Shown here is a 125-nucleotide sequence from Eleutherodactylus coqui, a member of the family "U4atac minor spliceosomal RNA". The family has 61 seed sequences and 1,648 matches in Rfam 15.1. A search with the family's covariance model found it, with a score of 93 bits.

[Rfam]
RNA sequence: ACCAUCCUGGUCUUGGGGUGAGCGACUGUCCAAUGAACGUAUAGUGAGGGCAGUACCGCUGACAUCAUGACAACACAUAAGUGCCACUAGUGUGCAAACACUAGCACGGCGCAAUUUUUGGAACC
Numbered sequence: 001a002c003c004a005u006c007c008u009g010g011u012c013u014u015g016g017g018g019u020g021a022g023c024g025a026c027u028g029u030c031c032a033a034u035g036a037a038c039g040u041a042u043a044g045u046g047a048g049g050g051c052a053g054u055a056c057c058g059c060u061g062a063c064a065u066c067a068u069g070a071c072a073a074c075a076c077a078u079a080a081g082u083g084c085c086a087c088u089a090g091u092g093u094g095c096a097a098a099c100a101c102u103a104g105c106a107c108g109g110c111g112c113a114a115u116u117u118u119u120g121g122a123a124c125c
Stems, first nucleotide, its partner, number of pairs: 006018003020059001022057001025054007037045002081112005088103006
Rfam's curators write: U4atac is an essential component of the minor U12-type spliceosome complex which is required for removal of the rarer class of eukaryotic introns (AT-AC, U12-type). The literature on the family includes a 2005 paper in RNA by Lorkovic et al., "Evolutionary conservation of minor U12-type spliceosome between plants and humans". The family's consensus secondary structure is taken from published work.